[Rfam]
RNA sequence: CUCAAGUGAUGGACAAAUGCCCAAGAAGCAGUAUGACCAAUUGGGAUGUAUUUGUACUGUCUGAUGGG
Numbered sequence: 001c002u003c004a005a006g007u008g009a010u011g012g013a014c015a016a017a018u019g020c021c022c023a024a025g026a027a028g029c030a031g032u033a034u035g036a037c038c039a040a041u042u043g044g045g046a047u048g049u050a051u052u053u054g055u056a057c058u059g060u061c062u063g064a065u066g067g068g
Stems, first nucleotide, its partner, number of pairs: 001068004008061005016052005021045002024042002028038001
About this RNA
Rfam assigns this 68-nucleotide RNA from Otolemur garnettii to the family "Small nucleolar RNA ZL2". The match comes from Rfam's covariance-model search (51 bits). For this family Rfam cites "Insights into snoRNA biogenesis and processing from PAR-CLIP of snoRNA core proteins and small RNA sequencing" (Kishore et al., Genome Biol, 2013). Its family is annotated with nucleolus and RNA processing in the Gene Ontology. The family's RNA type in Rfam is C/D-box small nucleolar RNA.